Overview:
The record is a 60-nucleotide sequence, which matches "Xanthine riboswitch aptamer (NMT1 RNA)" in Rfam. The base pairs follow the family's consensus structure, which is taken from published work.
[Rfam]
RNA sequence: GGCGAGAGUAGAAGCGUUCAGCCCGCAUCGCAACAGUGCAGGCAGGAAAUCGCUCUUGAU
Numbered sequence: 001g002g003c004g005a006g007a008g009u010a011g012a013a014g015c016g017u018u019c020a021g022c023c024c025g026c027a028u029c030g031c032a033a034c035a036g037u038g039c040a041g042g043c044a045g046g047a048a049a050u051c052g053c054u055c056u057u058g059a060u
Stems, first nucleotide, its partner, number of pairs: 005056005015045001018047002021043003025039003
Its family is annotated with purine nucleobase binding in the Gene Ontology.